[Rfam]
RNA sequence: GACUCGGACUUAUGCAAUCGCAACGCUCAAACCUUGUCAGGACCGGAAGGUAGCAGCAAUACGAGAUGCUUUCGAUGGGCGUAAGAUUCGGGUCUUCU
Dot-bracket structure: ...((.(((((((((.((((.(...(((.....((((....(((....)))....))))...))).....).)))))..))))))..)).))......
Numbered sequence: 001g002a003c004u005c006g007g008a009c010u011u012a013u014g015c016a017a018u019c020g021c022a023a024c025g026c027u028c029a030a031a032c033c034u035u036g037u038c039a040g041g042a043c044c045g046g047a048a049g050g051u052a053g054c055a056g057c058a059a060u061a062c063g064a065g066a067u068g069c070u071u072u073c074g075a076u077g078g079g080c081g082u083a084a085g086a087u088u089c090g091g092g093u094c095u096u097c098u
Stems, first nucleotide, its partner, number of pairs: 004092002007089002009085006015077001017076004022071001026065003034059004042051003